The record is a 353-nucleotide RNA sequence from Methanogenium marinum, which matches "Archaeal RNase P" in Rfam.
The match comes from Rfam's covariance-model search (192 bits).
It is annotated as a ribozyme.
Its Rfam clan is "RNaseP clan".
For this family Rfam cites "Ribonuclease P: unity and diversity in a tRNA processing ribozyme" (Frank and Pace, Annu Rev Biochem, 1998).
Ribonuclease P (RNase P) is a ubiquitous endoribonuclease, found in archaea, bacteria and eukarya as well as chloroplasts and mitochondria. Its best characterised activity is the generation of mature 5'-ends of tRNAs by cleaving the 5'-leader elements of precursor-tRNAs. Cellular RNase Ps are ribonucleoproteins. RNA from bacterial RNase Ps retains its catalytic activity in the absence of the protein subunit, i.e. it is a ribozyme.
Gene Ontology terms of the family: tRNA processing, multimeric ribonuclease P complex and ribonuclease P activity.

RNA sequence: GAGAGGGAGUGAGUGGCUGACGGUGGCAUGAAAUGCUGCUGAGGAAAGUCCCCACACCAACCGGACGCGUAGCCGCAUGCAAGUGCGGGUGGCGAGAGUCACGGCUCUGACACAGAAACGACACGCCCUGCCGUUAGCGAUGAUGCGACUGAGCCAUUUGUUUAGGCUAAUGGCGAGAAGGCACCUCUGGUGCUGAGUUAACUCGCUGAUGCUCUGAGCGGCAGGAUUCGAUUGAACGGUGAAACCCUAUGGGUGCAAGUCAGAACAGGGCGAAAGGGCUGUCCGGGCCUGCCCGGGUAUGGCGCGUAGCUGAAUGCCACAGAGAAACAGAAUGGGGCUUACUACUCCCACUC
Numbered sequence: 001g002a003g004a005g006g007g008a009g010u011g012a013g014u015g016g017c018u019g020a021c022g023g024u025g026g027c028a029u030g031a032a033a034u035g036c037u038g039c040u041g042a043g044g045a046a047a048g049u050c051c052c053c054a055c056a057c058c059a060a061c062c063g064g065a066c067g068c069g070u071a072g073c074c075g076c077a078u079g080c081a082a083g084u085g086c087g088g089g090u091g092g093c094g095a096g097a098g099u100c101a102c103g104g105c106u107c108u109g110a111c112a113c114a115g116a117a118a119c120g121a122c123a124c125g126c127c128c129u130g131c132c133g134u135u136a137g138c139g140a141u142g143a144u145g146c147g148a149c150u151g152a153g154c155c156a157u158u159u160g161u162u163u164a165g166g167c168u169a170a171u172g173g174c175g176a177g178a179a180g181g182c183a184c185c186u187c188u189g190g191u192g193c194u195g196a197g198u199u200a201a202c203u204c205g206c207u208g209a210u211g212c213u214c215u216g217a218g219c220g221g222c223a224g225g226a227u228u229c230g231a232u233u234g235a236a237c238g239g240u241g242a243a244a245c246c247c248u249a250u251g252g253g254u255g256c257a258a259g260u261c262a263g264a265a266c267a268g269g270g271c272g273a274a275a276g277g278g279c280u281g282u283c284c285g286g287g288c289c290u291g292c293c294c295g296g297g298u299a300u301g302g303c304g305c306g307u308a309g310c311u312g313a314a315u316g317c318c319a320c321a322g323a324g325a326a327a328c329a330g331a332a333u334g335g336g337g338c339u340u341a342c343u344a345c346u347c348c349c350a351c352u353c
Base pairs, nucleotide, nucleotide: 001353002352003351005349006348007347008346009345011342013320014319015318016317017316021041022040023039024038025037026036027035028034029033046340047339048338050337051336052335053334054333055255056254057253058252061285063283064282068251069250070249071248072247073088074087075086076085077084089102090101091100092099093098103246104245108242110240111239124230125229127225128224129223130222131221132220133219134218145206146205147204148203259303260302261301262300268294269293270292271291272290